[Rfam]
RNA sequence: GUGACCUCUGGAAAGAAGGCCCACCCCACAGGCAGGGCCUCGCCGAAGGUGAAAGUCCGGCAAAGAUCGGGCGAAGCUCUCAGGCACCGAUGACAGAGGGGGAGGA
Numbered sequence: 001g002u003g004a005c006c007u008c009u010g011g012a013a014a015g016a017a018g019g020c021c022c023a024c025c026c027c028a029c030a031g032g033c034a035g036g037g038c039c040u041c042g043c044c045g046a047a048g049g050u051g052a053a054a055g056u057c058c059g060g061c062a063a064a065g066a067u068c069g070g071g072c073g074a075a076g077c078u079c080u081c082a083g084g085c086a087c088c089g090a091u092g093a094c095a096g097a098g099g100g101g102g103a104g105g106a
Base pairs, nucleotide, nucleotide: 005099006098007097008096009095010094017040018039019038020037021036022035042085043084044083045081046080049079051077055072056071057070058069059068
The record is a 106-nucleotide RNA sequence from Streptosporangiaceae bacterium NEAU-GS5, which matches "Glycine riboswitch aptamer" in Rfam. This family represents the bacterial glycine riboswitch. Glycine riboswitches usually consist of two metabolite-binding aptamers domains with similar structures in tandem. The aptamers cooperatively bind glycine to regulate the expression of downstream genes. Lineage of the source: Bacteria > Actinomycetota > Actinomycetes > Streptosporangiales > Streptosporangiaceae. It scores 48 bits against the family's covariance model.